[Rfam]
Nucleotides: 077
Stems, first nucleotide, its partner, number of pairs: 001077006
Number, partner (000 for none) and nucleotide at each position: 001077u002076a003075u004074c005073u006072c007000a008000a009000u010000g011000a012000u013000g014000u015000u016000u017000g018000g019000a020000u021000a022000u023000a024000u025000u026000u027000u028000g029000u030000g031000u032000u033000a034000a035000a036000a037000g038000u039000a040000g041000c042000c043000u044000g045000a046000u047000u048000u049000a050000u051000u052000g053000a054000u055000g056000a057000u058000a059000a060000u061000u062000c063000c064000a065000u066000a067000u068000c069000u070000g071000a072006g073005a074004g075003a076002u077001g